[Rfam]
RNA sequence: UUGUCCUGGCCUGUGGUUUCUCUGUUUCCCUGUGCUCAGUUGUAACGGGGGAGUCUGGCAGGACACACAGCAGUCUUUCUCUCAGUUUAGGAGGGCCGUCCAGAGGAUAGGGCUGGCUCUUUUUUUUUUUGGAUCCUC
Numbered sequence: 001u002u003g004u005c006c007u008g009g010c011c012u013g014u015g016g017u018u019u020c021u022c023u024g025u026u027u028c029c030c031u032g033u034g035c036u037c038a039g040u041u042g043u044a045a046c047g048g049g050g051g052a053g054u055c056u057g058g059c060a061g062g063a064c065a066c067a068c069a070g071c072a073g074u075c076u077u078u079c080u081c082u083c084a085g086u087u088u089a090g091g092a093g094g095g096c097c098g099u100c101c102a103g104a105g106g107a108u109a110g111g112g113c114u115g116g117c118u119c120u121u122u123u124u125u126u127u128u129u130u131g132g133a134u135c136c137u138c
Stems, first nucleotide, its partner, number of pairs: 002065007010058002024054003028050006078133002082131001085127001091121007098113004103108001